This 105-nucleotide RNA sequence from Prunus yedoensis belongs to the Rfam family "MIR6274 microRNA precursor family". Its family is annotated with RISC complex and miRNA-mediated post-transcriptional gene silencing in the Gene Ontology.
[Rfam]
RNA sequence: GGAUAACACUUUUUGCUAUUCCCGACCAAUAAUGCAAUAACAUGUAGGAUAGCUUUUUUGCAUGUUAUUGUAUUAUUGGCCGAAGAUAGCAAAAUAAUGUUAUUC
Number, nucleotide and partner (000 for none) at each position: 001g000002g104003a103004u102005a101006a000007c000008a000009c000010u000011u094012u093013u092014u091015g090016c089017u088018a087019u086020u000021c000022c000023c082024g081025a000026c079027c078028a077029a076030u075031a074032a073033u072034g071035c070036a069037a068038u067039a066040a065041c064042a063043u062044g061045u060046a059047g058048g057049a056050u000051a000052g000053c000054u000055u000056u049057u048058u047059u046060g045061c044062a043063u042064g041065u040066u039067a038068u037069u036070g035071u034072a033073u032074u031075a030076u029077u028078g027079g026080c000081c024082g023083a000084a000085g000086a019087u018088a017089g016090c015091a014092a013093a012094a011095u000096a000097a000098u000099g000100u000101u005102a004103u003104u002105c000

The family's consensus secondary structure was predicted with RNAalifold.